[Rfam]
RNA sequence: CUCCUCGAAAUAGCUUUAGGGCUAGCCUUGAUGGAGUCUAAUGGAGGUAGAGCACUGAAUUGCCUAGGGGGCGUCAAAGCUUACCGAAGCAUAUCAAACUCCGAAUGCCAUAUAGAUGCUCAUCAGGAGUCAGACUGCGCGAGAUAAGUUGGGUAGUCAAAAGGGAAAGAGCCCAGACCACCAGCUAAGGUCCCAAAGUAUGUGUUAAGUGGAAAAGGAUGUGAGAUUUCAGAGACAACUAGGAUGUUGGCUUAGAAGCAGCCACUCAUUCAAAGAGUGCGUAAUAGCUCACUAGUCGAGAGAUCUUGCGCCGAAAAUGUCCGGGGCUAAAACACAACACCGAAGCUGUGGAAUUGAACAUAGUUCAAUUGGUAGAGGAGCAUUCUUAUUUGGGAGGAAGCUGUACCGUAAGGAGCAGUGGACUAAUAAGAAGAGAGAAU
Numbered sequence: 001c002u003c004c005u006c007g008a009a010a011u012a013g014c015u016u017u018a019g020g021g022c023u024a025g026c027c028u029u030g031a032u033g034g035a036g037u038c039u040a041a042u043g044g045a046g047g048u049a050g051a052g053c054a055c056u057g058a059a060u061u062g063c064c065u066a067g068g069g070g071g072c073g074u075c076a077a078a079g080c081u082u083a084c085c086g087a088a089g090c091a092u093a094u095c096a097a098a099c100u101c102c103g104a105a106u107g108c109c110a111u112a113u114a115g116a117u118g119c120u121c122a123u124c125a126g127g128a129g130u131c132a133g134a135c136u137g138c139g140c141g142a143g144a145u146a147a148g149u150u151g152g153g154u155a156g157u158c159a160a161a162a163g164g165g166a167a168a169g170a171g172c173c174c175a176g177a178c179c180a181c182c183a184g185c186u187a188a189g190g191u192c193c194c195a196a197a198g199u200a201u202g203u204g205u206u207a208a209g210u211g212g213a214a215a216a217g218g219a220u221g222u223g224a225g226a227u228u229u230c231a232g233a234g235a236c237a238a239c240u241a242g243g244a245u246g247u248u249g250g251c252u253u254a255g256a257a258g259c260a261g262c263c264a265c266u267c268a269u270u271c272a273a274a275g276a277g278u279g280c281g282u283a284a285u286a287g288c289u290c291a292c293u294a295g296u297c298g299a300g301a302g303a304u305c306u307u308g309c310g311c312c313g314a315a316a317a318u319g320u321c322c323g324g325g326g327c328u329a330a331a332a333c334a335c336a337a338c339a340c341c342g343a344a345g346c347u348g349u350g351g352a353a354u355u356g357a358a359c360a361u362a363g364u365u366c367a368a369u370u371g372g373u374a375g376a377g378g379a380g381c382a383u384u385c386u387u388a389u390u391u392g393g394g395a396g397g398a399a400g401c402u403g404u405a406c407c408g409u410a411a412g413g414a415g416c417a418g419u420g421g422a423c424u425a426a427u428a429a430g431a432a433g434a435g436a437g438a439a440u
Stems, first nucleotide, its partner, number of pairs: 001380006011024005026129001027127007035120001036117005041111004050102001051100002056096003061091003067085002069082004133158006140151003163174003178351004183347003189341003198338001201336005217312002221309010238296005244269003249263003270274001275290001279288002352370008381435001383432007391425003400419005406413002